Notes
The record is a 130-nucleotide RNA from Bacillus sp. FJAT-27916, which matches "ylbH leader" in Rfam. About the family: This family is a putative regulatory RNA structure that is found upstream of the ylbH gene in B. subtilis and related low GC Gram-positive bacteria. By type it is a cis-regulatory leader. Taxonomically the source falls in Bacillus (Bacteria, Bacillati, Bacilli, Caryophanales). A search with the family's covariance model found it, with a score of 105 bits.

RNA sequence: AUAAAAAAAGCCCUGCGAAUCGGAAUUCGCAGGGUCCUUCUAUAUUCCUCCAAGCGUUGGAGGGCAGAAGGCAAAGGGAGAGGAGAAACCGGAGGAAGAACUUAUGGGGAAACGUAAGUCUUCUCCGCGG
Number, nucleotide and partner (000 for none) at each position: 001a000002u000003a000004a000005a000006a000007a000008a000009a000010g000011c034012c033013c032014u031015g030016c029017g028018a027019a026020u000021c000022g000023g000024a000025a000026u019027u018028c017029g016030c015031a014032g013033g012034g011035u078036c077037c076038u075039u074040c000041u000042a000043u000044a000045u000046u064047c063048c062049u061050c060051c059052a000053a000054g000055c000056g000057u000058u000059g051060g050061a049062g048063g047064g046065c000066a000067g000068a000069a000070g000071g000072c000073a000074a039075a038076g037077g036078g035079a000080g000081a000082g000083g000084a000085g000086a000087a000088a000089c000090c127091g126092g125093a124094g000095g123096a122097a121098g120099a000100a119101c118102u117103u116104a115105u000106g000107g000108g000109g000110a000111a000112a000113c000114g000115u104116a103117a102118g101119u100120c098121u097122u096123c095124u093125c092126c091127g090128c000129g000130g000